[Rfam]
RNA sequence: AGCUAUUGCAGUUCUUUUAGAAUUUGUCUUGUGGGUUUUCUGACCAAAGUCAGAAUUUUUCUAUCAGGUUUUCUGACUUUGGUGGGAAAACCCAA
Numbered sequence: 001a002g003c004u005a006u007u008g009c010a011g012u013u014c015u016u017u018u019a020g021a022a023u024u025u026g027u028c029u030u031g032u033g034g035g036u037u038u039u040c041u042g043a044c045c046a047a048a049g050u051c052a053g054a055a056u057u058u059u060u061c062u063a064u065c066a067g068g069u070u071u072u073c074u075g076a077c078u079u080u081g082g083u084g085g086g087a088a089a090a091c092c093c094a095a
Base pairs, nucleotide, nucleotide: 034092035091036090037089038088039087040086041085
Background:
This 95-nucleotide RNA from Mus musculus belongs to the Rfam family "U7 small nuclear RNA". On this family, see Spycher et al., Nucleic Acids Res 1994: "3' end processing of mouse histone pre-mRNA: evidence for additional base-pairing between U7 snRNA and pre-mRNA". About the family: Animal histone pre-mRNAs are spliced by a different mechanism than nuclear pre-mRNAs and self-splicing introns. This processing involves the U7 snRNP, which contains only one RNA species: U7. The 5' end of U7 RNA is thought to base-pair to a conserved spacer element downstream of the cleavage site in histone pre-mRNA. This family contains a number of annotated U7 pseudogenes.